[Rfam]
RNA sequence: AGAGGUCAAAAGUUUAAGGUCACAGCAGAAGUGCUCACAGCACAACCUGUCAGAUUCCAAAGAAAUCUGUGAAUUGUGCU
Numbered sequence: 001a002g003a004g005g006u007c008a009a010a011a012g013u014u015u016a017a018g019g020u021c022a023c024a025g026c027a028g029a030a031g032u033g034c035u036c037a038c039a040g041c042a043c044a045a046c047c048u049g050u051c052a053g054a055u056u057c058c059a060a061a062g063a064a065a066u067c068u069g070u071g072a073a074u075u076g077u078g079c080u
Stems, first nucleotide, its partner, number of pairs: 018047003024080004029075002031043003051069006
Rfam assigns this 80-nucleotide sequence from Alligator mississippiensis to the family "Mammalian CPEB3 ribozyme". The family's consensus secondary structure is taken from published work. The match comes from Rfam's covariance-model search (46 bits). The source organism's lineage runs through Eukaryota, Metazoa, Sauria, Crocodylia and Alligator. About the family: The mammalian CPEB3 ribozyme is a self cleaving RNA located in the second intron of the CPEB3 gene which belongs to a family of genes regulating messenger RNA polyadenylation. This ribozyme is highly conserved and found only in mammals. The CPEB3 ribozyme is structurally and biochemically related to the human hepatitis delta virus (HDV) ribozyme and the HDV ribozyme is proposed to have arisen from the human transcriptome. On this family, see Salehi-Ashtiani et al., Science 2006: "A genomewide search for ribozymes reveals an HDV-like sequence in the human CPEB3 gene".